[Rfam]
RNA: Ascomycota telomerase RNA, nucleotides 1132 to 1529
Organism: Trichoderma longibrachiatum
RNA sequence: AAACAAACAGAAGGGGGCUGCUUGGGACACAUCUAGAACAGCUGGGCUGCGAUACGCUACUCGGACAUUGGACUCGACGACUUCGAAGACAUCGGUGGGUUUACUAUAGGAUUGGUUCCGGACAUCGGCUCGUUGGGGACACCACAGGGACGACUUGAUAUCGAGUUGGCGCGGAACCGGGACCCAUCUCGAGUUGGAGUCAAAGUUCAGUACUUGUCCGGUUCCAUAACCAGCUUGGUUUCUGAGUCUGUUCCGCGGGCUGUCACCCCUUGGUUCAUUCUCUGACUUGACGUACUCGAAACGUCUAUUGGAUCAUAAGGACAAGCCAGAGAUUCGGAGGGCAGUUCUGGUUGUCCUUUUCCCAGAAAUGGCUGGAGGACAACCCCCCAGCGGCGAGG
Numbered sequence: 001a002a003a004c005a006a007a008c009a010g011a012a013g014g015g016g017g018c019u020g021c022u023u024g025g026g027a028c029a030c031a032u033c034u035a036g037a038a039c040a041g042c043u044g045g046g047c048u049g050c051g052a053u054a055c056g057c058u059a060c061u062c063g064g065a066c067a068u069u070g071g072a073c074u075c076g077a078c079g080a081c082u083u084c085g086a087a088g089a090c091a092u093c094g095g096u097g098g099g100u101u102u103a104c105u106a107u108a109g110g111a112u113u114g115g116u117u118c119c120g121g122a123c124a125u126c127g128g129c130u131c132g133u134u135g136g137g138g139a140c141a142c143c144a145c146a147g148g149g150a151c152g153a154c155u156u157g158a159u160a161u162c163g164a165g166u167u168g169g170c171g172c173g174g175a176a177c178c179g180g181g182a183c184c185c186a187u188c189u190c191g192a193g194u195u196g197g198a199g200u201c202a203a204a205g206u207u208c209a210g211u212a213c214u215u216g217u218c219c220g221g222u223u224c225c226a227u228a229a230c231c232a233g234c235u236u237g238g239u240u241u242c243u244g245a246g247u248c249u250g251u252u253c254c255g256c257g258g259g260c261u262g263u264c265a266c267c268c269c270u271u272g273g274u275u276c277a278u279u280c281u282c283u284g285a286c287u288u289g290a291c292g293u294a295c296u297c298g299a300a301a302c303g304u305c306u307a308u309u310g311g312a313u314c315a316u317a318a319g320g321a322c323a324a325g326c327c328a329g330a331g332a333u334u335c336g337g338a339g340g341g342c343a344g345u346u347c348u349g350g351u352u353g354u355c356c357u358u359u360u361c362c363c364a365g366a367a368a369u370g371g372c373u374g375g376a377g378g379a380c381a382a383c384c385c386c387c388c389a390g391c392g393g394c395g396a397g398g
Stems, first nucleotide, its partner, number of pairs: 181201003184197003203215004